[Rfam]
RNA sequence: GCGACUCUGGAAAGUCAGGACGCUGUCCUGCGCCCACGGUGCAAACCGCCGGACCACGGCGGUGAAGCUCUCAGGUUCCGAUGACAGAGCGGGGAGG
Numbered sequence: 001g002c003g004a005c006u007c008u009g010g011a012a013a014g015u016c017a018g019g020a021c022g023c024u025g026u027c028c029u030g031c032g033c034c035c036a037c038g039g040u041g042c043a044a045a046c047c048g049c050c051g052g053a054c055c056a057c058g059g060c061g062g063u064g065a066a067g068c069u070c071u072c073a074g075g076u077u078c079c080g081a082u083g084a085c086a087g088a089g090c091g092g093g094g095a096g097g
Stems, first nucleotide, its partner, number of pairs: 002092001005089005016030004032076003036071001039070001041068001045063007
This 97-nucleotide RNA sequence from Dactylosporangium sucinum belongs to the Rfam family "Glycine riboswitch aptamer".